[Rfam]
RNA sequence: GUGUGUGAUGACGAUCUGGCUGCAACAUCUGUUACACUAUUGAUCACCAGGGUUGCUUUGGCUGAUCUAGCUGGCUAGGUGAGUGUGUCCCUCUCCUCCCUCAACACUUCAUGUGCAUCCCUCUCAGAGAUGUGGGCUCAGUUGAAAAGGAUGAUUUUCCCCAUAGAGAUGACACUGUUCAUCAGUCAAGGGUAUACGGUAGUUGUGCUCCUCUGUUGGAAUCUCCAAACAAGCUCAAGGUCCACUUGCAGGAGAACAUAGGGUAGUAAAUUUUCCAAGACUCCAGACACAUACAAGUGAGCUGUUGCAUGGGGCAGUUUGCCAUUGUUU
Number, nucleotide and partner (000 for none) at each position: 001g110002u000003g108004u000005g000006u103007g102008a101009u000010g099011a000012c000013g095014a094015u000016c000017u000018g091019g090020c000021u000022g000023c000024a088025a086026c085027a084028u083029c000030u081031g080032u079033u078034a000035c074036a000037c070038u069039a068040u000041u000042g067043a066044u065045c064046a000047c061048c060049a000050g000051g000052g000053u000054u000055g000056c000057u000058u000059u000060g048061g047062c000063u000064g045065a044066u043067c042068u039069a038070g037071c000072u000073g000074g035075c000076u000077a000078g033079g032080u031081g030082a000083g028084u027085g026086u025087g000088u024089c000090c019091c018092u000093c000094u014095c013096c000097u000098c000099c010100c000101u008102c007103a006104a000105c000106a000107c000108u003109u000110c001111a000112u000113g000114u000115g000116c000117a000118u172119c171120c000121c168122u167123c166124u141125c000126a000127g138128a000129g137130a000131u000132g000133u000134g000135g000136g000137c129138u127139c000140a000141g124142u163143u000144g161145a000146a000147a000148a000149g160150g159151a158152u000153g000154a000155u000156u000157u000158u151159c150160c149161c144162c000163a142164u000165a000166g123167a122168g121169a000170u000171g119172a118173c000174a000175c000176u000177g000178u000179u000180c000181a000182u000183c000184a000185g000186u000187c000188a000189a000190g000191g000192g000193u000194a000195u000196a000197c000198g000199g000200u000201a000202g272203u000204u270205g000206u000207g000208c266209u265210c000211c263212u262213c261214u260215g259216u258217u000218g000219g000220a000221a000222u000223c254224u253225c252226c251227a000228a000229a000230c248231a247232a246233g245234c000235u000236c000237a000238a000239g000240g000241u000242c000243c000244a000245c233246u232247u231248g230249c000250a000251g226252g225253a224254g223255a000256a000257c000258a216259u215260a214261g213262g212263g211264u000265a209266g208267u000268a000269a000270a204271u000272u202273u000274u000275c000276c000277a000278a000279g000280a000281c000282u000283c000284c000285a000286g000287a000288c000289a000290c000291a000292u000293a000294c000295a330296a329297g328298u000299g325300a000301g323302c000303u321304g318305u317306u316307g315308c314309a000310u000311g000312g000313g000314g308315c307316a306317g305318u304319u000320u000321g303322c000323c301324a000325u299326u000327g000328u297329u296330u295